[Rfam]
This 77-nucleotide RNA from Geobacter sulfurreducens belongs to the Rfam family "c-di-GMP-I riboswitch aptamer".
NCBI's taxonomy places the organism under Bacteria, Pseudomonadati, Desulfuromonadia, Geobacterales, Geobacter sulfurreducens.
Rfam links the family to the GO term cyclic-di-GMP binding.

RNA sequence: UAGCGAUACUACUAAACCAUCCGCGAGGAUGGGGCGGAAAGCCCACAGGGUCUCACGAAGACAGCCGGGUUGCCGAA
Numbered sequence: 001u002a003g004c005g006a007u008a009c010u011a012c013u014a015a016a017c018c019a020u021c022c023g024c025g026a027g028g029a030u031g032g033g034g035c036g037g038a039a040a041g042c043c044c045a046c047a048g049g050g051u052c053u054c055a056c057g058a059a060g061a062c063a064g065c066c067g068g069g070u071u072g073c074c075g076a077a
Stems, first nucleotide, its partner, number of pairs: 012037002017032006040071004046067001048066002050062003